Shown here is a 36-nucleotide sequence from Collinsella sp. MS5, a member of the family "L31-Coriobacteria ribosomal protein leader".
The family's consensus secondary structure is taken from published work.
The family has 75 seed sequences and 105 matches in Rfam 15.1.
RNA sequence: GUCCUGGUCGGAAACCAGGACGCGAUUCCAGAGGAG
Dot-bracket structure: ((((((((.....))))))))...............
Taxonomically the source falls in Collinsella (Bacteria, Actinomycetota, Coriobacteriia, Coriobacteriaceae). The family is grouped with related families in Rfam's "Ribosomal Protein L31 Leader clan". A reference for the family is Eckert and Weinberg (2020), "Discovery of 20 novel ribosomal leader candidates in bacteria and archaea", BMC Microbiol.